Shown here is a 72-nucleotide RNA sequence from Scyliorhinus torazame, a member of the family "mir-129 microRNA precursor family". Its family is annotated with RISC complex, long-term synaptic potentiation and miRNA-mediated post-transcriptional gene silencing in the Gene Ontology. It scores 72 bits against the family's covariance model.
RNA sequence: UCGAAUCUUUUUGCGGUCUGGGCUUUCUGUCUCCAGCUGUGGUUAGAAAGCCCUUACCACAAAAAGCGUUUG
Numbered sequence: 001u002c003g004a005a006u007c008u009u010u011u012u013g014c015g016g017u018c019u020g021g022g023c024u025u026u027c028u029g030u031c032u033c034c035a036g037c038u039g040u041g042g043u044u045a046g047a048a049a050g051c052c053c054u055u056a057c058c059a060c061a062a063a064a065a066g067c068g069u070u071u072g
Base pairs, nucleotide, nucleotide: 007066008065009064010063011062012061013060015058016057017056020053021052022051023050025048027046028045
Dot-bracket structure: ......(((((((.(((..((((.(.((................)).).))))..))).)))))))......